[Rfam]
RNA sequence: GUGGGUCUGUUGCUUUGACGAUGUUGCACUACUGUUCCUGCAACUCAAGCAGUGCAAUAGUAUUGUCAUAGCGUUGGACCUUCGU
Numbered sequence: 001g002u003g004g005g006u007c008u009g010u011u012g013c014u015u016u017g018a019c020g021a022u023g024u025u026g027c028a029c030u031a032c033u034g035u036u037c038c039u040g041c042a043a044c045u046c047a048a049g050c051a052g053u054g055c056a057a058u059a060g061u062a063u064u065g066u067c068a069u070a071g072c073g074u075u076g077g078a079c080c081u082u083c084g085u
Stems, first nucleotide, its partner, number of pairs: 003081002007077003011073004016068004023058008034041001
Rfam assigns this 85-nucleotide RNA from Albula goreensis to the family "mir-301 microRNA precursor family". The family has 17 seed sequences and 1,415 matches in Rfam 15.1. Its family is annotated with miRNA-mediated post-transcriptional gene silencing and RISC complex in the Gene Ontology.